[Rfam]
Shown here is an 86-nucleotide RNA sequence from Lacisediminihabitans changchengi, a member of the family "ZMP/ZTP riboswitch aptamer (pfl RNA motif)". Rfam 15.1 lists 3,295 matches to the family in 2,545 species.
RNA sequence: UGGGCUGGUCGCGACUGGCGUUGAGAGGGACACCCUCGGGGAGCGGCACCAAGACUUCGUUUCGGCCGUUCGCCUGGGCCGAACCG
Number, nucleotide and partner (000 for none) at each position: 001u000002g000003g050004g049005c000006u000007g000008g047009u046010c045011g044012c043013g000014a000015c040016u039017g074018g073019c072020g071021u000022u000023g000024a000025g037026a036027g035028g034029g000030a000031c000032a000033c000034c028035c027036u026037c025038g000039g016040g015041g000042a000043g012044c011045g010046g009047c008048a000049c004050c003051a000052a000053g000054a000055c000056u000057u000058c000059g000060u000061u000062u000063c081064g080065g079066c078067c077068g000069u000070u000071c020072g019073c018074c017075u000076g000077g067078g066079c065080c064081g063082a000083a000084c000085c000086g000